RNA: Mammalian CPEB3 ribozyme
RNA sequence: UUGCAAGUUCAAGGCGAUAGCAGAAGCACUCACAGCAUGGCCUGUCAGAUUCCAGUGAAUCUGCAAAUUCUGCU
Numbered sequence: 001u002u003g004c005a006a007g008u009u010c011a012a013g014g015c016g017a018u019a020g021c022a023g024a025a026g027c028a029c030u031c032a033c034a035g036c037a038u039g040g041c042c043u044g045u046c047a048g049a050u051u052c053c054a055g056u057g058a059a060u061c062u063g064c065a066a067a068u069u070c071u072g073c074u
Base pairs, nucleotide, nucleotide: 013042014041015040019074020073021072022071023070024069025068026036027035046063047062048061049060050059051058052057